[Rfam]
RNA sequence: AUAGACAGAAGAGGUGCGAUACUUAGGUAUUUAGUGAGAGGUGACGAACGCCGCAGACCACUAAAGAGGGGAGUACUCGCCGAGGAAGUUCAUAAUACGUCAUUAUGCACUUUCGGUUUACGAGGUUGAAUCCUUGGAACUGUCACCGUUUUAUGGUGGAGAGCUUCUGGCAAU
Numbered sequence: 001a002u003a004g005a006c007a008g009a010a011g012a013g014g015u016g017c018g019a020u021a022c023u024u025a026g027g028u029a030u031u032u033a034g035u036g037a038g039a040g041g042u043g044a045c046g047a048a049c050g051c052c053g054c055a056g057a058c059c060a061c062u063a064a065a066g067a068g069g070g071g072a073g074u075a076c077u078c079g080c081c082g083a084g085g086a087a088g089u090u091c092a093u094a095a096u097a098c099g100u101c102a103u104u105a106u107g108c109a110c111u112u113u114c115g116g117u118u119u120a121c122g123a124g125g126u127u128g129a130a131u132c133c134u135u136g137g138a139a140c141u142g143u144c145a146c147c148g149u150u151u152u153a154u155g156g157u158g159g160a161g162a163g164c165u166u167c168u169g170g171c172a173a174u
Stems, first nucleotide, its partner, number of pairs: 006169006016080004023073002030065007084114006091107005115141004121136005143159007
A member of the RNA family "Lysine riboswitch aptamer" from Pseudoalteromonas citrea, 174 nucleotides long. A reference for the family is Mandal et al. (2003), "Riboswitches Control Fundamental Biochemical Pathways in Bacillus subtilis and Other Bacteria", Cell. Riboswitches are metabolite binding domains within certain messenger RNAs that serve as precision sensors for their corresponding targets. The match comes from Rfam's covariance-model search (99 bits). NCBI's taxonomy places the organism under Bacteria, Pseudomonadota, Gammaproteobacteria, Alteromonadales, Pseudoalteromonas. The family's consensus secondary structure is taken from published work.